Source information: Shown here is a 110-nucleotide sequence from Nakamurella multipartita, a member of the family "SAM (S-adenosyl methionine) riboswitch aptamer". A search with the family's covariance model found it, with a score of 61 bits. About the family: SAM-IV is a mRNA element that regulates gene expression via direct sensing of S-adenosylmethionine (SAM or AdoMet). Taxonomically the source falls in Nakamurella multipartita (Bacteria, Actinomycetota, Nakamurellales, Nakamurella).

[Rfam]
RNA sequence: GGUGACCAGACGCAGCGUCAAGCCCUGACUUGCUGCUCGGCAACCCUCACGUCGCAAGACCGGGUGCCCCAGGUGAUCACUCGAUCCGGUCCUCCGGAUCAGCACGACGA
Numbered sequence: 001g002g003u004g005a006c007c008a009g010a011c012g013c014a015g016c017g018u019c020a021a022g023c024c025c026u027g028a029c030u031u032g033c034u035g036c037u038c039g040g041c042a043a044c045c046c047u048c049a050c051g052u053c054g055c056a057a058g059a060c061c062g063g064g065u066g067c068c069c070c071a072g073g074u075g076a077u078c079a080c081u082c083g084a085u086c087c088g089g090u091c092c093u094c095c096g097g098a099u100c101a102g103c104a105c106g107a108c109g110a
Base pairs, nucleotide, nucleotide: 001081002080003079004078009038012036013035014034015033016032021030022029039068040067041066044064045063046062084099085098086097087096088095089094